[Rfam]
RNA sequence: CCCAAAAAUACAUACUUCUUUACAUUCCAUAGCAAAGCAUUUCAUAUGGGCAUAUGAAGAAGUAUGCAGUUUUGGA
Dot-bracket structure: ......(.(.((((((((((((.(..(((((.............)))))...).)))))))))))).).)......